This 148-nucleotide sequence from Tricholaema leucomelas belongs to the Rfam family "Small nucleolar RNA SNORD97". The organism belongs to Tricholaema lacrymosa, within Eukaryota. It is annotated as a C/D-box small nucleolar RNA.
[Rfam]
RNA sequence: UUGCCCAAUGAUUAUAGCAAGACGCGUUAUUAUGAGGACUAAUGCUGGAACUCCUUCUCCUCUUUUGUCCCUUUCUCUUUCACCUUACCCCUUUCAUUUUCCUUAGGGUGUCCAGCGUCCUAUGAGCAAGACUGAGAUAUGAGGGCAA
Numbered sequence: 001u002u003g004c005c006c007a008a009u010g011a012u013u014a015u016a017g018c019a020a021g022a023c024g025c026g027u028u029a030u031u032a033u034g035a036g037g038a039c040u041a042a043u044g045c046u047g048g049a050a051c052u053c054c055u056u057c058u059c060c061u062c063u064u065u066u067g068u069c070c071c072u073u074u075c076u077c078u079u080u081c082a083c084c085u086u087a088c089c090c091c092u093u094u095c096a097u098u099u100u101c102c103u104u105a106g107g108g109u110g111u112c113c114a115g116c117g118u119c120c121u122a123u124g125a126g127c128a129a130g131a132c133u134g135a136g137a138u139a140u141g142a143g144g145g146c147a148a
Base pairs, nucleotide, nucleotide: 001148002147003146004145005144006143035055036054037053038052040049